[Rfam]
RNA: Small nucleolar RNA SNORA69
RNA sequence: UACGCAGGUUGUAAUUACAGUGCUUUGUUUUGGGGAAGUACUGCUGUUAUCCUGCUGAAAGACAAGCUGUGUUAGUCAUUUUUGAUUUUGCCUUUAUGAGGGUAAAAAUCAUGACAGAUUGGCAUGGACAAUU
Numbered sequence: 001u002a003c004g005c006a007g008g009u010u011g012u013a014a015u016u017a018c019a020g021u022g023c024u025u026u027g028u029u030u031u032g033g034g035g036a037a038g039u040a041c042u043g044c045u046g047u048u049a050u051c052c053u054g055c056u057g058a059a060a061g062a063c064a065a066g067c068u069g070u071g072u073u074a075g076u077c078a079u080u081u082u083u084g085a086u087u088u089u090g091c092c093u094u095u096a097u098g099a100g101g102g103u104a105a106a107a108a109u110c111a112u113g114a115c116a117g118a119u120u121g122g123c124a125u126g127g128a129c130a131a132u133u
Stems, first nucleotide, its partner, number of pairs: 004055005018043009067127011083111007090103005